RNA sequence: UUUUUUCGAACCAUUUGAAUCAAGUAGUGAUUCAAAUGGUUCGAAAAA
Numbered sequence: 001u002u003u004u005u006u007c008g009a010a011c012c013a014u015u016u017g018a019a020u021c022a023a024g025u026a027g028u029g030a031u032u033c034a035a036a037u038g039g040u041u042c043g044a045a046a047a048a
Base pairs, nucleotide, nucleotide: 004046005045006044007043008042009041010040011039012038013037014036015035016034017033018032019031020030021029022028
Dot-bracket structure: ...(((((((((((((((((((.....)))))))))))))))))))..
This 48-nucleotide RNA from Camphora micrantha belongs to the Rfam family "Plastid-ccsA-ndhD-2 3UTR RNA". It scores 56 bits against the family's covariance model. Lineage of the source: Eukaryota > Euphyllophyta > Mesangiospermae > Lauraceae > Camphora. The family's consensus secondary structure was predicted with LocARNA. Rfam classes the family as a cis-regulatory element. Rfam describes the family as follows. Plastid ccsA-ndhD-2 is a non-coding RNA (ncRNA) recognised in plastids. It was found in the three prime untranslated region (3UTR) of ccsA and ndhD genes, its 3UTR location suggests a role in transcript maturation.